[Rfam]
RNA: Hovlinc ribozyme (hominin vlincRNA-located)
RNA sequence: ACCUGGACUAAGCCCAGGAAUAUGGUGCCUCAGACCUGCAUGGGCCAUAUGCUUAACGAAGACAAGCUCUCCUUCUCUCUAACACUGUGCCAACUCAUGAUUCUCAUGACCUGCUUGGAAAGAUCUGGACUAAAGAGUCAGAGGAACUCUGACUUUGCCAGCCAUGGCUAG
Numbered sequence: 001a002c003c004u005g006g007a008c009u010a011a012g013c014c015c016a017g018g019a020a021u022a023u024g025g026u027g028c029c030u031c032a033g034a035c036c037u038g039c040a041u042g043g044g045c046c047a048u049a050u051g052c053u054u055a056a057c058g059a060a061g062a063c064a065a066g067c068u069c070u071c072c073u074u075c076u077c078u079c080u081a082a083c084a085c086u087g088u089g090c091c092a093a094c095u096c097a098u099g100a101u102u103c104u105c106a107u108g109a110c111c112u113g114c115u116u117g118g119a120a121a122g123a124u125c126u127g128g129a130c131u132a133a134a135g136a137g138u139c140a141g142a143g144g145a146a147c148u149c150u151g152a153c154u155u156u157g158c159c160a161g162c163c164a165u166g167g168c169u170a171g
Stems, first nucleotide, its partner, number of pairs: 011169003017163002025156001027154001030152005046087002052135003055131001060073002074123003078119002095109006110144003113139001115137002